RNA sequence: ACUGUGGAGUGUACAUGAAUCUGCGAGUAGUAAAUCACUUAGUGAUUACCAAAGCAUACACAUUGAAGCAGUAA
Numbered sequence: 001a002c003u004g005u006g007g008a009g010u011g012u013a014c015a016u017g018a019a020u021c022u023g024c025g026a027g028u029a030g031u032a033a034a035u036c037a038c039u040u041a042g043u044g045a046u047u048a049c050c051a052a053a054g055c056a057u058a059c060a061c062a063u064u065g066a067a068g069c070a071g072u073a074a
Base pairs, nucleotide, nucleotide: 001072002071003070004069005068009061010060011059012058013057022056023055024054030049031048032047035045036044

Shown here is a 74-nucleotide RNA, a member of the family "RAGATH-18 RNA". By type it is a small RNA. The base pairs follow the family's consensus structure, which is taken from published work.